[Rfam]
RNA sequence: AUUUUUGGAUAAUCGCAUGGUAAAUUAGUUGCCAUGAGGAAAGUCCAUGCUAGCACUGGCUGUGAUGCCGGUAGUGUUUGUGCUAGGCGAACCAAUAAGCCUAGGGACUUGUCCUUGAGAUAAGUUACGGCGGAUAAAAUGGCUAAGUCUUUGAUAUGCCAGAGUCAUCCUGAAAGUGCCACAGUGACGUAGUUUUCAUGGAAACGUGAAAAAUGGAACGCGGUAAACCCCUCAAGCUAGCAACCCAAACUUUGGUCGGGGCAUGAAAUAGCUGGAAUACGAACAGACUAUUUUGACUGCAAGUUUAUCCUUGUAGUAGACAGAUGAUUAUCAAGGGAGGCAAGGCCUAGUUGCCUCCUGAACAAAACAUGGCUUAUAGAA
Numbered sequence: 001a002u003u004u005u006u007g008g009a010u011a012a013u014c015g016c017a018u019g020g021u022a023a024a025u026u027a028g029u030u031g032c033c034a035u036g037a038g039g040a041a042a043g044u045c046c047a048u049g050c051u052a053g054c055a056c057u058g059g060c061u062g063u064g065a066u067g068c069c070g071g072u073a074g075u076g077u078u079u080g081u082g083c084u085a086g087g088c089g090a091a092c093c094a095a096u097a098a099g100c101c102u103a104g105g106g107a108c109u110u111g112u113c114c115u116u117g118a119g120a121u122a123a124g125u126u127a128c129g130g131c132g133g134a135u136a137a138a139a140u141g142g143c144u145a146a147g148u149c150u151u152u153g154a155u156a157u158g159c160c161a162g163a164g165u166c167a168u169c170c171u172g173a174a175a176g177u178g179c180c181a182c183a184g185u186g187a188c189g190u191a192g193u194u195u196u197c198a199u200g201g202a203a204a205c206g207u208g209a210a211a212a213a214u215g216g217a218a219c220g221c222g223g224u225a226a227a228c229c230c231c232u233c234a235a236g237c238u239a240g241c242a243a244c245c246c247a248a249a250c251u252u253u254g255g256u257c258g259g260g261g262c263a264u265g266a267a268a269u270a271g272c273u274g275g276a277a278u279a280c281g282a283a284c285a286g287a288c289u290a291u292u293u294u295g296a297c298u299g300c301a302a303g304u305u306u307a308u309c310c311u312u313g314u315a316g317u318a319g320a321c322a323g324a325u326g327a328u329u330a331u332c333a334a335g336g337g338a339g340g341c342a343a344g345g346c347c348u349a350g351u352u353g354c355c356u357c358c359u360g361a362a363c364a365a366a367a368c369a370u371g372g373c374u375u376a377u378a379g380a381a
Stems, first nucleotide, its partner, number of pairs: 004381003007377001008332007016036006041375003045372005050240005055072006078235003082231001083104006105128001106126008129230002132170004140161004147155003176228002178224003193212008244260003264295007296317008335359008

This 381-nucleotide RNA from Streptococcus sp. sy004 belongs to the Rfam family "Bacterial RNase P class B". Lineage of the source: Bacteria > Bacilli > Lactobacillales > Streptococcaceae > Streptococcus. The family is grouped with related families in Rfam's "RNaseP clan". The match comes from Rfam's covariance-model search (343 bits). Rfam's curators write: Ribonuclease P (RNase P) is a ubiquitous endoribonuclease, found in archaea, bacteria and eukarya as well as chloroplasts and mitochondria. Its best characterised activity is the generation of mature 5'-ends of tRNAs by cleaving the 5'-leader elements of precursor-tRNAs. Cellular RNase Ps are ribonucleoproteins. RNA from bacterial RNase Ps retains its catalytic activity in the absence of the protein subunit, i.e. it is a ribozyme. For this family Rfam cites "The Ribonuclease P Database" (Brown, Nucleic Acids Res, 1999).